Shown here is a 91-nucleotide RNA sequence, a member of the family "eL15-Euryarchaeota ribosomal protein leader".
Rfam classes the family as a cis-regulatory leader.
The base pairs follow the family's consensus structure, which is taken from published work.
RNA sequence: CCCGUACACACGGGACGACAUGUGGCUCGGGUGGUCCACCGGACCACCGCAACCGAGCGGCGGAGCCGCGAGGGGAGAGCUGAAUCGCAAG
Dot-bracket structure: (((((....))))).(((.....(((((................................................)))))...)))....